[Rfam]
RNA: ASpks TB sRNA
Organism: Actinokineospora bangkokensis
RNA sequence: CUUCAGCGAGCCCAGCCACAGCGGGGUCUCCCGGUCCUGGCCGUAGGUGGCCAACAGGGCCUGGGCCUC
Numbered sequence: 001c002u003u004c005a006g007c008g009a010g011c012c013c014a015g016c017c018a019c020a021g022c023g024g025g026g027u028c029u030c031c032c033g034g035u036c037c038u039g040g041c042c043g044u045a046g047g048u049g050g051c052c053a054a055c056a057g058g059g060c061c062u063g064g065g066c067c068u069c
Stems, first nucleotide, its partner, number of pairs: 016024002029065003032059001038053002041050003